Rfam assigns this 103-nucleotide RNA sequence from Acerihabitans arboris to the family "Gammaprotebacteria rimP leader". The source organism's lineage runs through Bacteria, Pseudomonadati, Gammaproteobacteria, Enterobacterales and Acerihabitans. The family's consensus secondary structure is taken from published work. The match comes from Rfam's covariance-model search (92 bits). Rfam classes the family as a cis-regulatory leader.
RNA sequence: AGUCGCUCGGCGGCUUACAGGGUCCCAGUCGCAAAAAGCCCCGAAUUUUCGGGGUUUUUUGUUAUUAAACUACAGAAAUACUGGGCUUUUUAGCCCUUUUUUU
Number, nucleotide and partner (000 for none) at each position: 001a000002g000003u000004c000005g000006c000007u000008c000009g000010g000011c000012g000013g000014c000015u000016u000017a000018c000019a000020g000021g000022g000023u000024c000025c000026c000027a000028g000029u000030c000031g000032c000033a000034a000035a058036a057037a056038g055039c054040c053041c052042c051043g050044a000045a000046u000047u000048u000049u000050c043051g042052g041053g040054g039055u038056u037057u036058u035059u000060u000061g000062u000063u000064a000065u000066u000067a000068a000069a000070c000071u000072a000073c000074a000075g000076a000077a000078a000079u000080a000081c000082u000083g096084g095085g094086c093087u000088u000089u000090u000091u000092a000093g086094c085095c084096c083097u000098u000099u000100u000101u000102u000103u000